[Rfam]
RNA: Eukaryotic large subunit ribosomal RNA, nucleotides 2477 to 3069
Organism: Mucor lusitanicus
RNA sequence: CGGGGAAAGAAGACCCUGUUGAGCUUGACUCUAGUUUGACAUUGUGAAAAGACAUAGAGGGUGUAGCAUAAGUGGGAGCUUCGGCGCCAGUGAAAUACCACUACCUUUAUCGUUUUUUUACUUAAAUAAUUAAGUGGGAUUGAGUCGCAAGACUCACCUUCUAGUAUUAAGCAUCUUCGGAUGUGACCCACGUUAUUGACAUUGUCAAGUGGGGAGUUUGGCUGGGGCGGCACAUCUGUUAAAAGAUAACGCAGGUGUCCUAAGGGGGACUCAACGAGAACAGAAAUCUCGUGUAGAAUAAAAGGGUAAAAGUCCCCUUGAUUUUGAUUUUCAGUGUGAAUACAAACCAUGAAAGUGUGGCCUAUCGAUCCUUUAGAAUCUCAAGAUUUGAGGCUAGAGGUGCCAGAAAAGUUACCACAGGGAUAACUGGCUUGUGGCAGCCAAGCGUUCAUAGCGACGUUGCUUUUUGAUUCUUCGAUGUCGGCUCUUCCUAUCAUACUGAAGCAGAAUUCAGUAAGCGUUGGAUUGUUCACCCACUAAUAGGGAACGUGAGCUGGGUUUAGACCGUCGUGAGACAGGUUAGUUUUACCCUA
Numbered sequence: 001c002g003g004g005g006a007a008a009g010a011a012g013a014c015c016c017u018g019u020u021g022a023g024c025u026u027g028a029c030u031c032u033a034g035u036u037u038g039a040c041a042u043u044g045u046g047a048a049a050a051g052a053c054a055u056a057g058a059g060g061g062u063g064u065a066g067c068a069u070a071a072g073u074g075g076g077a078g079c080u081u082c083g084g085c086g087c088c089a090g091u092g093a094a095a096u097a098c099c100a101c102u103a104c105c106u107u108u109a110u111c112g113u114u115u116u117u118u119u120a121c122u123u124a125a126a127u128a129a130u131u132a133a134g135u136g137g138g139a140u141u142g143a144g145u146c147g148c149a150a151g152a153c154u155c156a157c158c159u160u161c162u163a164g165u166a167u168u169a170a171g172c173a174u175c176u177u178c179g180g181a182u183g184u185g186a187c188c189c190a191c192g193u194u195a196u197u198g199a200c201a202u203u204g205u206c207a208a209g210u211g212g213g214g215a216g217u218u219u220g221g222c223u224g225g226g227g228c229g230g231c232a233c234a235u236c237u238g239u240u241a242a243a244a245g246a247u248a249a250c251g252c253a254g255g256u257g258u259c260c261u262a263a264g265g266g267g268g269a270c271u272c273a274a275c276g277a278g279a280a281c282a283g284a285a286a287u288c289u290c291g292u293g294u295a296g297a298a299u300a301a302a303a304g305g306g307u308a309a310a311a312g313u314c315c316c317c318u319u320g321a322u323u324u325u326g327a328u329u330u331u332c333a334g335u336g337u338g339a340a341u342a343c344a345a346a347c348c349a350u351g352a353a354a355g356u357g358u359g360g361c362c363u364a365u366c367g368a369u370c371c372u373u374u375a376g377a378a379u380c381u382c383a384a385g386a387u388u389u390g391a392g393g394c395u396a397g398a399g400g401u402g403c404c405a406g407a408a409a410a411g412u413u414a415c416c417a418c419a420g421g422g423a424u425a426a427c428u429g430g431c432u433u434g435u436g437g438c439a440g441c442c443a444a445g446c447g448u449u450c451a452u453a454g455c456g457a458c459g460u461u462g463c464u465u466u467u468u469g470a471u472u473c474u475u476c477g478a479u480g481u482c483g484g485c486u487c488u489u490c491c492u493a494u495c496a497u498a499c500u501g502a503a504g505c506a507g508a509a510u511u512c513a514g515u516a517a518g519c520g521u522u523g524g525a526u527u528g529u530u531c532a533c534c535c536a537c538u539a540a541u542a543g544g545g546a547a548c549g550u551g552a553g554c555u556g557g558g559u560u561u562a563g564a565c566c567g568u569c570g571u572g573a574g575a576c577a578g579g580u581u582a583g584u585u586u587u588a589c590c591c592u593a
Stems, first nucleotide, its partner, number of pairs: 003592003007587002015421004020417002022413005028217004035209007044121010054110007071102005078085002125197005135190004143154004171184005220233001221231003234256006259360002265317006271297002274292006298307002322346003327341004348357003371399006379393004430471001432469001434468001436464006445455002482557001483555004487549001488546005495520001498515006522536003526532001563581004567576003